[Rfam]
RNA sequence: CACGGGCCGCGCAACUGGCGAUGAUGCCCCUGCUGCAGUGAGGGGCCAAGGUGGGUGACCACCGGGGAGCGCGGCUGCCAGCGCACCCUCGGUGGCCGGCAGAUCCGCCGUUCGCCUGGGCAGCCGAG
Numbered sequence: 001c002a003c004g005g006g007c008c009g010c011g012c013a014a015c016u017g018g019c020g021a022u023g024a025u026g027c028c029c030c031u032g033c034u035g036c037a038g039u040g041a042g043g044g045g046c047c048a049a050g051g052u053g054g055g056u057g058a059c060c061a062c063c064g065g066g067g068a069g070c071g072c073g074g075c076u077g078c079c080a081g082c083g084c085a086c087c088c089u090c091g092g093u094g095g096c097c098g099g100c101a102g103a104u105c106c107g108c109c110g111u112u113c114g115c116c117u118g119g120g121c122a123g124c125c126g127a128g
Stems, first nucleotide, its partner, number of pairs: 005076008015066002017116005051062004105123001107121003
The record is a 128-nucleotide RNA sequence from Mitsuaria sp. WAJ17, which matches "ZMP/ZTP riboswitch aptamer (pfl RNA motif)" in Rfam.
It scores 46 bits against the family's covariance model.